[Rfam]
c-di-AMP riboswitch aptamer (ydaO/yuaA leader): a 221-nucleotide sequence from Actinospica robiniae.
NCBI's taxonomy places the organism under Bacteria, Actinomycetes, Catenulisporales, Actinospicaceae, Actinospica robiniae.
RNA sequence: GUCACCGAACCGCCGCAUCCGUUCCCGGAGCCGGGGACCCAAUCUCCGUGGCGCACCGUGCGCCCGGUCCCCCGGGGUGAAUCGGCCCUCACAUCAGACGAAACUCACGGACGGCGACCCUAGCCGUGCGCUGAGUGACGCCUCGAUCGGGGCCGUAGGGCGCAAACUCACCUUCCGCCCGAACCCGUCAGCUAACCCGGUAGGCGGCCGAAGGAGAGGCU
Numbered sequence: 001g002u003c004a005c006c007g008a009a010c011c012g013c014c015g016c017a018u019c020c021g022u023u024c025c026c027g028g029a030g031c032c033g034g035g036g037a038c039c040c041a042a043u044c045u046c047c048g049u050g051g052c053g054c055a056c057c058g059u060g061c062g063c064c065c066g067g068u069c070c071c072c073c074g075g076g077g078u079g080a081a082u083c084g085g086c087c088c089u090c091a092c093a094u095c096a097g098a099c100g101a102a103a104c105u106c107a108c109g110g111a112c113g114g115c116g117a118c119c120c121u122a123g124c125c126g127u128g129c130g131c132u133g134a135g136u137g138a139c140g141c142c143u144c145g146a147u148c149g150g151g152g153c154c155g156u157a158g159g160g161c162g163c164a165a166a167c168u169c170a171c172c173u174u175c176c177g178c179c180c181g182a183a184c185c186c187g188u189c190a191g192c193u194a195a196c197c198c199g200g201u202a203g204g205c206g207g208c209c210g211a212a213g214g215a216g217a218g219g220c221u
Stems, first nucleotide, its partner, number of pairs: 011206004018029003030201006040074001075186003083155007158180004
From the family's description: This family represents a conserved RNA structure found upstream of the ydaO and yuaA genes in Bacillus subtilis and related genes in other bacteria.